[Rfam]
RNA sequence: ACAUAAAUACAGCAUUGGUGUAUGCGGCAUGGCCGCGCACUUGAAGGCGAAAAUCGUUUUGGACGGGGGUUCGAUUCCCCCCACCUCCACCAAAUGCGGGAAGGGGCGCUCGGCUGCCUUCCUCCAUCUGAAGGGGGUGACCUGGUUUCGACAGGGCGACAAGUAUCCGGAGACACACCACGUCAGGCGACCGACGUAAAUAGCGCAAAUCCAUAAUUGCAAAUGAACCGCAAUUCGUUGCUUACGGCACCUAAUAGUCGUUAAGCCGAGUAUCCGGCCCCUUCGCAAGAAGGCUUGGGAACAGAAAGGCCGGACGUCUCUAUCGUUAGCAGCGA
Number, nucleotide and partner (000 for none) at each position: 001a000002c000003a000004u000005a000006a000007a000008u000009a000010c000011a000012g000013c000014a000015u000016u000017g000018g000019u000020g000021u000022a000023u000024g000025c000026g000027g000028c000029a000030u000031g000032g000033c000034c000035g176036c000037g000038c000039a000040c000041u000042u175043g174044a000045a000046g167047g166048c000049g164050a000051a000052a000053a000054u000055c158056g157057u156058u155059u154060u153061g152062g000063a000064c000065g081066g080067g079068g078069g077070u000071u000072c000073g000074a000075u000076u000077c069078c068079c067080c066081c065082c139083a138084c137085c136086u135087c134088c133089a000090c000091c000092a000093a000094a000095u000096g000097c000098g000099g000100g000101a000102a000103g000104g000105g000106g000107c000108g000109c000110u000111c000112g000113g000114c000115u000116g000117c000118c000119u000120u000121c000122c000123u000124c000125c000126a000127u000128c000129u000130g000131a000132a000133g088134g087135g086136g085137g084138u083139g082140a000141c000142c000143u000144g000145g000146u000147u000148u000149c000150g000151a000152c061153a060154g059155g058156g057157c056158g055159a000160c000161a000162a000163g000164u049165a000166u047167c046168c000169g000170g000171a000172g000173a000174c043175a042176c035177a000178c000179c000180a000181c196182g195183u194184c193185a000186g000187g000188c000189g000190a000191c000192c000193g184194a183195c182196g181197u000198a000199a000200a000201u000202a000203g000204c000205g000206c000207a000208a000209a000210u000211c000212c000213a000214u000215a000216a000217u000218u000219g000220c000221a000222a000223a000224u000225g000226a000227a000228c000229c000230g000231c000232a000233a000234u000235u000236c000237g000238u000239u000240g000241c000242u000243u000244a000245c000246g000247g000248c000249a000250c000251c000252u000253a000254a000255u000256a000257g000258u000259c000260g000261u000262u000263a000264a000265g000266c000267c000268g000269a283270g282271u000272a000273u000274c313275c312276g311277g310278c309279c308280c000281c000282u270283u269284c000285g000286c000287a000288a000289g000290a000291a000292g000293g000294c000295u000296u000297g000298g000299g000300a000301a000302c000303a000304g000305a000306a000307a000308g279309g278310c277311c276312g275313g274314a000315c334316g333317u332318c000319u000320c329321u328322a327323u000324c000325g000326u000327u322328a321329g320330c000331a000332g317333c316334g315335a000
A member of the RNA family "Betaproteobacteria transfer-messenger RNA" from Herbaspirillum sp. YR522, 335 nucleotides long. The organism belongs to Herbaspirillum, within Bacteria. Bacterial tmRNA, also known as 10Sa RNA or SsrA, is named for its dual tRNA and mRNA-like properties. Its role is to liberate the mRNA from a stalled ribosome. A reference for the family is Felden et al. (1997), "Probing the structure of the Escherichia coli 10Sa RNA (tmRNA)", RNA. Clan: tRNA clan. It scores 107 bits against the family's covariance model.